[Rfam]
RNA sequence: ACCUUAUCAAGAGUGGUGGAGGGAAGGGCCCGAUGAAAUCCGGCAACCAUAAGUAGUAUGGUGCUAAAUCCCACAGAAUAUAAUUCUGGAAGAUGAGGA
Numbered sequence: 001a002c003c004u005u006a007u008c009a010a011g012a013g014u015g016g017u018g019g020a021g022g023g024a025a026g027g028g029c030c031c032g033a034u035g036a037a038a039u040c041c042g043g044c045a046a047c048c049a050u051a052a053g054u055a056g057u058a059u060g061g062u063g064c065u066a067a068a069u070c071c072c073a074c075a076g077a078a079u080a081u082a083a084u085u086c087u088g089g090a091a092g093a094u095g096a097g098g099a
Base pairs, nucleotide, nucleotide: 002098003097004096005095006094007093008092013041015040016039017038021031022030023029026072027071028070042065043064044063045062047061048060049057050056069091074088075087076086077085078084079083
Rfam assigns this 99-nucleotide sequence from Natronincola ferrireducens to the family "SAM riboswitch aptamer (S box leader)". The family's consensus secondary structure is taken from published work.